[Rfam]
RNA sequence: ACGGCAGCUCGUAAGGCCAAGACCGAUCCGGAAGAGAAGGGUCGACCUCCCGAAGCGAGCUACCCAGCACGGUCCCCCGGCACCCACGCGGAGCCAUAGCCGCUGACAGGGCAAAAGUGUUGCGGGCCUGCGCAUUUGAGAAAACCGGACAAUGCAACUGACCCCUCGGGUGGGGCCGCAUUCGUAACGGAUCGCAAAGCGCCGAGGCCACCCCGCGCAACCCACCUAGCACGCCUGGUAACCGAGUGGCCCGUGCUGGCGGGCGGUGAGCCGAAGUGAUUCGGAACGCCGCCCGCAUUGCCGU
Numbered sequence: 001a002c003g004g005c006a007g008c009u010c011g012u013a014a015g016g017c018c019a020a021g022a023c024c025g026a027u028c029c030g031g032a033a034g035a036g037a038a039g040g041g042u043c044g045a046c047c048u049c050c051c052g053a054a055g056c057g058a059g060c061u062a063c064c065c066a067g068c069a070c071g072g073u074c075c076c077c078c079g080g081c082a083c084c085c086a087c088g089c090g091g092a093g094c095c096a097u098a099g100c101c102g103c104u105g106a107c108a109g110g111g112c113a114a115a116a117g118u119g120u121u122g123c124g125g126g127c128c129u130g131c132g133c134a135u136u137u138g139a140g141a142a143a144a145c146c147g148g149a150c151a152a153u154g155c156a157a158c159u160g161a162c163c164c165c166u167c168g169g170g171u172g173g174g175g176c177c178g179c180a181u182u183c184g185u186a187a188c189g190g191a192u193c194g195c196a197a198a199g200c201g202c203c204g205a206g207g208c209c210a211c212c213c214c215g216c217g218c219a220a221c222c223c224a225c226c227u228a229g230c231a232c233g234c235c236u237g238g239u240a241a242c243c244g245a246g247u248g249g250c251c252c253g254u255g256c257u258g259g260c261g262g263g264c265g266g267u268g269a270g271c272c273g274a275a276g277u278g279a280u281u282c283g284g285a286a287c288g289c290c291g292c293c294c295g296c297a298u299u300g301c302c303g304u
Stems, first nucleotide, its partner, number of pairs: 003064002006061007015051002020048002024044006065258008078244003084238003088234003093230002099112003119221006125209005130202004136197003140193002145190003149185002152182001159178002162175004259296010271284003
This 304-nucleotide RNA sequence from Mycolicibacterium brumae belongs to the Rfam family "Mycobacterium smegmatis small RNA 1". Lineage of the source: Bacteria > Actinomycetes > Mycobacteriales > Mycobacterium > Mycobacterium (subgen. Mycolicibacterium). A reference for the family is Hnilicova et al. (2014), "Ms1, a novel sRNA interacting with the RNA polymerase core in mycobacteria", Nucleic Acids Res. A search with the family's covariance model found it, with a score of 217 bits. The family's consensus secondary structure was predicted with CMfinder. Rfam links the family to the GO term RNA polymerase binding. Rfam describes the family as follows. Mycobacterium smegmatis small RNA 1 is highly expressed during stationary phase of growth. Ms1 RNA directly interacts with RNA polymerase (RNAP), but in a different way than 6S, which is present in other bacteria. Ms1 does not require the presence of the main sigma factor for RNAP interaction. There is evidence that Ms1 RNA may function similar to 6S RNA in M. smegmatis which does not have 6S RNA.